[Rfam]
RNA sequence: CGUGAUCUACCCUGUAGAUCCGGGCUUUUGUGGAUCGAUAAGAGUCAGAAGCUCGUCUCUACAGGUAUCUUACGG
Number, nucleotide and partner (000 for none) at each position: 001c000002g073003u072004g071005a070006u000007c000008u000009a000010c065011c064012c000013u000014g000015u000016a060017g059018a058019u000020c000021c055022g054023g053024g052025c051026u050027u049028u048029u047030g046031u000032g000033g000034a000035u000036c000037g000038a000039u000040a000041a000042g000043a000044g000045u000046c030047a029048g028049a027050a026051g025052c024053u023054c022055g021056u000057c000058u018059c017060u016061a000062c000063a000064g011065g010066u000067a000068u000069c000070u005071u004072a003073c002074g000075g000
RNA: mir-10 microRNA precursor family
Organism: Rhodnius prolixus